[Rfam]
RNA sequence: GUGGUGUGCUCAGAGCAGGGGGCCUAAAGAAAUGGCUCCUCUGUUUAUUACACACCAAACAGGAAUCUGGGUUUCCUGAUGAGGGUCACAAAACUUGUGACUUUCCUAUGAACAAUACCCUACAGAU
Numbered sequence: 001g002u003g004g005u006g007u008g009c010u011c012a013g014a015g016c017a018g019g020g021g022g023c024c025u026a027a028a029g030a031a032a033u034g035g036c037u038c039c040u041c042u043g044u045u046u047a048u049u050a051c052a053c054a055c056c057a058a059a060c061a062g063g064a065a066u067c068u069g070g071g072u073u074u075c076c077u078g079a080u081g082a083g084g085g086u087c088a089c090a091a092a093a094c095u096u097g098u099g100a101c102u103u104u105c106c107u108a109u110g111a112a113c114a115a116u117a118c119c120c121u122a123c124a125g126a127u
Base pairs, nucleotide, nucleotide: 002057003056004055005054006053007052008051013046014045015044016043017042018041019040020039021038022036023035024034070120071119073117077112080110081109083103084102085101087099088098089097090096091095
Rfam assigns this 127-nucleotide RNA sequence from Sorex araneus to the family "Small nucleolar RNA SNORA11". Rfam describes the family as follows. U107 (SNORA11) is a member of the H/ACA class of snoRNAs that guide the sites of modification of uridines to pseudouridines. This snoRNA was identified by RT-PCR from blood cells and its expression confirmed by Northern blot analysis. There is no predicted target for this guide snRNA. The family has 35 seed sequences and 2,014 matches in Rfam 15.1. The family's consensus secondary structure was predicted with RNAalifold. Rfam's curators put it in the seed alignment. It is annotated as an H/ACA-box small nucleolar RNA.